RNA sequence: AGGUUAAUGCUAAUCGUGAUAGGGGUUGUGUUUCACCUGACACCUAACAUGCUAGCAUUAGCUU
Dot-bracket structure: ...(((((((((.(.....((((.(((...........))).))))....).)))))))))...
Numbered sequence: 001a002g003g004u005u006a007a008u009g010c011u012a013a014u015c016g017u018g019a020u021a022g023g024g025g026u027u028g029u030g031u032u033u034c035a036c037c038u039g040a041c042a043c044c045u046a047a048c049a050u051g052c053u054a055g056c057a058u059u060a061g062c063u064u
Stems, first nucleotide, its partner, number of pairs: 004061009014051001020046004025041003